[Rfam]
RNA sequence: CUGAAUGGUGCUCCUGAACUGCGACCGAUACGACCUUCGACAAGCCGUAUUAUCGCAGCUCAGAGCACCAUUCUCUGUUAAUGGCACACUCCGAACCCGCACUGCCAUGAAAG
Numbered sequence: 001c002u003g004a005a006u007g008g009u010g011c012u013c014c015u016g017a018a019c020u021g022c023g024a025c026c027g028a029u030a031c032g033a034c035c036u037u038c039g040a041c042a043a044g045c046c047g048u049a050u051u052a053u054c055g056c057a058g059c060u061c062a063g064a065g066c067a068c069c070a071u072u073c074u075c076u077g078u079u080a081a082u083g084g085c086a087c088a089c090u091c092c093g094a095a096c097c098c099g100c101a102c103u104g105c106c107a108u109g110a111a112a113g
Stems, first nucleotide, its partner, number of pairs: 003073011015062003019058005027051003031047001034044001102113002